[Rfam]
RNA: Small nucleolar RNA snoR27
RNA sequence: ACAGGAUCAAUGAUGUAAUGACUAAACUGCGUUAUCUUUCUGUAAUUCCUUUAGCGGGAUUGAAGAUGCUAACAUUAUUCUGAGAUCCAUU
Number, nucleotide and partner (000 for none) at each position: 001a091002c000003a000004g088005g087006a086007u085008c000009a000010a000011u000012g000013a000014u000015g000016u000017a000018a000019u000020g000021a000022c000023u000024a000025a000026a000027c000028u000029g000030c000031g000032u000033u000034a000035u000036c000037u000038u000039u000040c000041u000042g000043u000044a000045a000046u000047u000048c000049c000050u000051u000052u000053a000054g000055c000056g000057g000058g000059a000060u000061u000062g000063a000064a000065g000066a000067u000068g000069c000070u000071a000072a000073c000074a000075u000076u000077a000078u000079u000080c000081u000082g000083a000084g000085a007086u006087c005088c004089a000090u000091u001